Description: The record is a 33-nucleotide RNA sequence, which matches "L31-Firmicutes ribosomal protein leader" in Rfam. Clan: Ribosomal Protein L31 Leader clan. On this family, see Eckert and Weinberg, BMC Microbiol 2020: "Discovery of 20 novel ribosomal leader candidates in bacteria and archaea". The family's RNA type in Rfam is cis-regulatory leader.
RNA sequence: CUCUGGUUCAGUCAAUGAAUCAGGGCAAAGGAG
Numbered sequence: 001c002u003c004u005g006g007u008u009c010a011g012u013c014a015a016u017g018a019a020u021c022a023g024g025g026c027a028a029a030g031g032a033g
Base pairs, nucleotide, nucleotide: 001025002024003023004022005021006020007019008018009017010016